RNA sequence: GGGGGCGACUUGGCUUCGACGCGGGUAGCAAAACCUGAGGAGCAUGCCGAGGUGCGGUGACCUCGUUAAUCACGCUGCAAAAUUAUAGUUGCCAACGACGACAACUACGCACUCGCUGCUUAAAACCCAGUAGGGUGCCGUCUGACUGAAGCCGUGCUUGUGCGUUCAGAUUUCAGGCGUCGACUCUCACAAGAUCGCGGUGAAGCUCUCCCAGGGCGGACCCGUUAAAACCUCACUGGGAUCGCCGUUUGUCUUCCCUGCCCGUCGGGUAGCAGGCGGUUAAAUUAAUGAUUGGGCUAAGCAUGUAGAACCAAAGGCGGAGUGCUUGCGGACGCGGGUUCAAUUCCCGCCGCCUCCACCA
Dot-bracket structure: (((((((............((((((((......(((..((..((((([[[[[(((((((.]]]]].......)))))))...............................((((((((.........)))).))))..((((((.((((..(....[[[[[[.).))))....))))))........]]]]]]....(((..........[[.[.......)))............].]]...(((((((((...(((.[[[[[[[)))..))))))))).........]]].]]]]...))))).....))..))).....))))))))...(((((.......))))))))))))....
This 361-nucleotide sequence from Nitrosococcus halophilus belongs to the Rfam family "transfer-messenger RNA". A search with the family's covariance model found it, with a score of 238 bits. Taxonomically the source falls in Nitrosococcus halophilus (Bacteria, Pseudomonadati, Chromatiaceae, Nitrosococcus). Bacterial tmRNA, also known as 10Sa RNA or SsrA, is named for its dual tRNA and mRNA-like properties. Its role is to liberate the mRNA from a stalled ribosome. To accomplish this part of the tmRNA is used as a reading frame that ends in a translation stop signal. The broken mRNA is replaced in the ribosome by the tmRNA and translation of the tmRNA leads to addition of a proteolysis tag to the incomplete protein enabling recognition by a protease. Recently a number of permuted tmRNA genes have been found encoded in two parts. tmRNAs have been identified in eubacteria and some chloroplasts but are absent from archaeal and eukaryote nuclear genomes. Pairs were carried over by alignment from the consensus structure, which is taken from published work. By type it is a non-coding RNA gene. Its Rfam clan is "tRNA clan".